[Rfam]
Shown here is a 376-nucleotide RNA from Meyerozyma guilliermondii, a member of the family "RNase MRP". The family's RNA type in Rfam is ribozyme. Rfam's curators write: RNase MRP is an enzymatically active ribonucleoprotein with two distinct roles in eukaryotes. The match comes from Rfam's covariance-model search (98 bits). Rfam 15.1 lists 3,510 matches to the family in 2,315 species.
RNA sequence: UUCAUGGCCAAAGAUUUGUUUUCGAAGCUUACAAAAGGACUUUCGGGUCGUCAGUGCUUUGGGGAAAGUCUCCUGCCUAAACGCGGAAACGCAAUGGUCCCAUCAGACCAUUUGAACCAUUCAGAAUUUUAGAGGCGGACAACCCUUUACAACAUUUUGGCAAAUACUAACGAUUUCGUUGUGUCUAUUUUUAAAAUAGCUCUGGUAUUGGCCAUUUUGUAUGGUAUUGGACUCUGUUGUUUGGUAAAGCUCUUUAAUUUUGGCUGGUUCACAUCCCAUUUAUGGUGUACAUUCGGCAAUGGGACGGUGAAUCCUAAACGAUAGUUAUAACAAAUGAUCUACGAUCAACCCAAUGGAGCUCACUCUUGGACCAUGA
Dot-bracket structure: .((((((((((..((((((..(((((((.........((((....))))......)))))))....[[.[[[[.........(((....))).((((((......))))))................................................................................................................................................................(.(((..(...((.........))..)..)).).).......................)))))).(((...))).........]]]]]].....)))).))))))